[Rfam]
RNA: MIR1435 microRNA precursor family
RNA sequence: UGGCCUUGUCCUAAGUCAAAACUCUCUAACUCUGACCAAGUUUUAGAUUCAGAAAAAUGUAUUAACAUCUUCAAGUUCAAAUAAAUGGACUUUUGAAAUAUAUUUCACGUCGAAUUCAAUGAAACAAAUUUGACAUUGCAGAUGUUGGUGCAUUUUUUUAUAAACUUGGUCAAAGUUAAAGAAGUUUGACUUAGAACAAAACCAA
Numbered sequence: 001u002g003g004c005c006u007u008g009u010c011c012u013a014a015g016u017c018a019a020a021a022c023u024c025u026c027u028a029a030c031u032c033u034g035a036c037c038a039a040g041u042u043u044u045a046g047a048u049u050c051a052g053a054a055a056a057a058u059g060u061a062u063u064a065a066c067a068u069c070u071u072c073a074a075g076u077u078c079a080a081a082u083a084a085a086u087g088g089a090c091u092u093u094u095g096a097a098a099u100a101u102a103u104u105u106c107a108c109g110u111c112g113a114a115u116u117c118a119a120u121g122a123a124a125c126a127a128a129u130u131u132g133a134c135a136u137u138g139c140a141g142a143u144g145u146u147g148g149u150g151c152a153u154u155u156u157u158u159u160a161u162a163a164a165c166u167u168g169g170u171c172a173a174a175g176u177u178a179a180a181g182a183a184g185u186u187u188g189a190c191u192u193a194g195a196a197c198a199a200a201a202c203c204a205a
Stems, first nucleotide, its partner, number of pairs: 006199004011194010023182003031174001033172003051159007060150003064146007072138002077133006